[Rfam]
RNA sequence: CUAGAAUAAGGGCAAGGUUAUCGAAAGGUAAGGACGCAAAGCUAUGGACCUGUAUCUAUAGUAAUAGAUACAGUAGCAACUUGCGCA
Numbered sequence: 001c002u003a004g005a006a007u008a009a010g011g012g013c014a015a016g017g018u019u020a021u022c023g024a025a026a027g028g029u030a031a032g033g034a035c036g037c038a039a040a041g042c043u044a045u046g047g048a049c050c051u052g053u054a055u056c057u058a059u060a061g062u063a064a065u066a067g068a069u070a071c072a073g074u075a076g077c078a079a080c081u082u083g084c085g086c087a
Stems, first nucleotide, its partner, number of pairs: 012037002018031005040081002043078001047077001048074002055068004
RNA: c-di-GMP-I riboswitch aptamer